[Rfam]
RNA sequence: AUAGUAAUGUAGGGGAGCUCAAACAUGAGCUGAGAGACCGAAUUGUAGGAAUACCCUUAGAACCUGAUAUGGUAAAACCAUCGUAGGGAACAUGUACAAAUGCCUC
Numbered sequence: 001a002u003a004g005u006a007a008u009g010u011a012g013g014g015g016a017g018c019u020c021a022a023a024c025a026u027g028a029g030c031u032g033a034g035a036g037a038c039c040g041a042a043u044u045g046u047a048g049g050a051a052u053a054c055c056c057u058u059a060g061a062a063c064c065u066g067a068u069a070u071g072g073u074a075a076a077a078c079c080a081u082c083g084u085a086g087g088g089a090a091c092a093u094g095u096a097c098a099a100a101u102g103c104c105u106c
Stems, first nucleotide, its partner, number of pairs: 007093004011057004017030005038049002041046001063087004069081004
TPP riboswitch aptamer (THI element): a 106-nucleotide RNA from Lysinibacillus sp. BF-4.
The literature on the family includes a 2002 paper in J Biol Chem by Rodionov et al., "Comparative genomics of thiamin biosynthesis in procaryotes. New genes and regulatory mechanisms".
A search with the family's covariance model found it, with a score of 65 bits.
The organism belongs to Lysinibacillus, within Bacteria.